[Rfam]
Nucleotides: 295
Base pairs, nucleotide, nucleotide: 001279002278003277004276005275006274007273016059017058018057019056020055031044032043033042034041035040083234084233085232086231132145133144134143135142136141146161147160148159149158150157151156171227172226173225174224175223176222177221190212191211280293281291282290283289
Number, partner (000 for none) and nucleotide at each position: 001279u002278c003277c004276u005275a006274c007273g008000a009000u010000u011000u012000a013000g014000a015000a016059a017058c018057c019056u020055g021000u022000u023000u024000g025000c026000u027000a028000a029000c030000g031044g032043a033042g034041u035040c036000u037000c038000a039000g040035g041034g042033c043032u044031c045000a046000c047000a048000c049000u050000a051000a052000u053000a054000g055020c056019a057018g058017g059016u060000g061000g062000g063000a064000a065000a066000u067000u068000c069000g070000g071000u072000g073000a074000a075000u076000c077000a078000c079000u080000g081000c082000g083234g084233a085232a086231c087000c088000c089000g090000a091000c092000a093000g094000a095000g096000c097000c098000u099000a100000a101000c102000a103000a104000g105000c106000u107000u108000u109000g110000u111000c112000g113000a114000c115000c116000g117000g118000u119000u120000g121000c122000c123000u124000u125000g126000g127000c128000g129000a130000c131000u132145u133144u134143u135142c136141c137000g138000u139000g140000a141136g142135g143134a144133g145132g146161g147160c148159c149158u150157g151156g152000g153000g154000a155000a156151c157150c158149a159148g160147g161146c162000u163000c164000a165000u166000a167000u168000g169000g170000u171227c172226a173225u174224u175223g176222u177221c178000a179000c180000a181000a182000g183000a184000a185000a186000u187000c188000a189000a190212c191211u192000c193000g194000g195000u196000a197000g198000u199000c200000c201000u202000g203000u204000a205000c206000u207000a208000u209000c210000g211191a212190g213000g214000a215000u216000g217000g218000g219000a220000a221177g222176g223175c224174a225173a226172u227171g228000g229000a230000c231086g232085u233084u234083c235000c236000g237000u238000u239000u240000a241000a242000c243000u244000u245000g246000a247000u248000c249000u250000c251000a252000u253000c254000a255000a256000g257000g258000u259000u260000u261000g262000u263000u264000g265000a266000g267000u268000g269000c270000a271000a272000u273007c274006g275005u276004a277003g278002g279001a280293c281291g282290g283289u284000c285000u286000u287000a288000g289283a290282c291281c292000u293280g294000a295000a
Shown here is a 295-nucleotide RNA sequence from Torulaspora delbrueckii, a member of the family "Nuclear RNase P". By type it is a ribozyme. Rfam's curators put it in the seed alignment. Clan: RNaseP clan. Ribonuclease P (RNase P) is a ubiquitous endoribonuclease, found in archaea, bacteria and eukarya as well as chloroplasts and mitochondria. Its best characterised activity is the generation of mature 5'-ends of tRNAs by cleaving the 5'-leader elements of precursor-tRNAs. Cellular RNase Ps are ribonucleoproteins. RNA from bacterial RNase Ps retains its catalytic activity in the absence of the protein subunit, i.e. it is a ribozyme. Isolated eukaryotic and archaeal RNase P RNA has not been shown to retain its catalytic function, but is still essential for the catalytic activity of the holoenzyme. Although the archaeal and eukaryotic holoenzyme s have a much greater protein content than the bacterial ones, the RNA cores from all the three lineages are homologous -- helices corresponding to P1, P2, P3, P4, and P10/11 are common to all cellular RNase P RNAs. Yet, there is considerable sequence variation, particularly among the eukaryotic RNAs. Taxonomically the source falls in Torulaspora (Eukaryota, Opisthokonta, Ascomycota, Saccharomycetales).